The family of this 52-nucleotide RNA sequence from Rhinolophus ferrumequinum is "mir-1302 microRNA precursor family". Rfam links the family to the GO terms miRNA-mediated post-transcriptional gene silencing and RISC complex. Rfam 15.1 lists 16,160 matches to the family in 135 species. The organism belongs to Rhinolophus, within Eukaryota.

[Rfam]
RNA sequence: UUUAAAGUGUAAGUAUGUCCCAUACACUAUUUGGGACAUAAUUAUACUAAAU
Numbered sequence: 001u002u003u004a005a006a007g008u009g010u011a012a013g014u015a016u017g018u019c020c021c022a023u024a025c026a027c028u029a030u031u032u033g034g035g036a037c038a039u040a041a042u043u044a045u046a047c048u049a050a051a052u
Stems, first nucleotide, its partner, number of pairs: 006048007014040003018036004022031001
Dot-bracket structure: .....(((((((.(((.(((((........).)))).))).)))))))....

The literature on the family includes a 2008 paper in Genome Res by Morin et al., "Application of massively parallel sequencing to microRNA profiling and discovery in human embryonic stem cells". The match comes from Rfam's covariance-model search (66 bits).